[Rfam]
RNA sequence: UAAUGCCAAUGAAGAGAGAUAUGCGUCAACAUAUCCCUCGAUGUAGAACCGCUUAAGACGGUAGCAUAGUUUAAUACAGUAAAGA
Numbered sequence: 001u002a003a004u005g006c007c008a009a010u011g012a013a014g015a016g017a018g019a020u021a022u023g024c025g026u027c028a029a030c031a032u033a034u035c036c037c038u039c040g041a042u043g044u045a046g047a048a049c050c051g052c053u054u055a056a057g058a059c060g061g062u063a064g065c066a067u068a069g070u071u072u073a074a075u076a077c078a079g080u081a082a083a084g085a
Base pairs, nucleotide, nucleotide: 020033021032022031023030048062049061050060051059053057
RNA: RNA anti-toxin A